[Rfam]
RNA sequence: AGUGUUUUCCCUCCACUUAAAUCGAAGGG
Numbered sequence: 001a002g003u004g005u006u007u008u009c010c011c012u013c014c015a016c017u018u019a020a021a022u023c024g025a026a027g028g029g
Stems, first nucleotide, its partner, number of pairs: 001017004009029004013024001
RNA: Pseudoknot of upstream pseudoknot domain (UPD) of the 3'UTR
Organism: Tobamovirus mititessellati